[Rfam]
RNA sequence: GGAAUGCGUGGGCCUGGUGGCCCGGCCGGUCUUCAAAACCGGUUUGCGGCCGCGGAGCGGCCGUGGGUGGUUCGAUUCCCCCGCAUUCC
Numbered sequence: 001g002g003a004a005u006g007c008g009u010g011g012g013c014c015u016g017g018u019g020g021c022c023c024g025g026c027c028g029g030u031c032u033u034c035a036a037a038a039c040c041g042g043u044u045u046g047c048g049g050c051c052g053c054g055g056a057g058c059g060g061c062c063g064u065g066g067g068u069g070g071u072u073c074g075a076u077u078c079c080c081c082c083g084c085a086u087u088c089c
Stems, first nucleotide, its partner, number of pairs: 001089008009024006025043006045065005067081001069079002
Description: A member of the RNA family "Selenocysteine transfer RNA" from Rubrobacter xylanophilus, 89 nucleotides long. Gene Ontology term of the family: triplet codon-amino acid adaptor activity. NCBI's taxonomy places the organism under Bacteria, Bacillati, Rubrobacterales, Rubrobacter, Rubrobacter xylanophilus.